SAM riboswitch aptamer (S box leader): a 123-nucleotide RNA sequence from Clostridium luticellarii.

[Rfam]
RNA sequence: CUCUUAUCAAGAGCGGUGGAGGGACUGGCCCUUUGAAGCCCGACAACCGGACAUCUUAUAUGUACCGGUGUCAAUUCCUGCAAAGUGAAUUAAAUUGUUUUAAGUUACUUUGAAAGAUAAGAA
Numbered sequence: 001c002u003c004u005u006a007u008c009a010a011g012a013g014c015g016g017u018g019g020a021g022g023g024a025c026u027g028g029c030c031c032u033u034u035g036a037a038g039c040c041c042g043a044c045a046a047c048c049g050g051a052c053a054u055c056u057u058a059u060a061u062g063u064a065c066c067g068g069u070g071u072c073a074a075u076u077c078c079u080g081c082a083a084a085g086u087g088a089a090u091u092a093a094a095u096u097g098u099u100u101u102a103a104g105u106u107a108c109u110u111u112g113a114a115a116g117a118u119a120a121g122a123a
Stems, first nucleotide, its partner, number of pairs: 002122007013041001015040003021031003025080001027078002042072004047068002051063003076115001081112008

Gene Ontology term of the family: regulation of gene expression.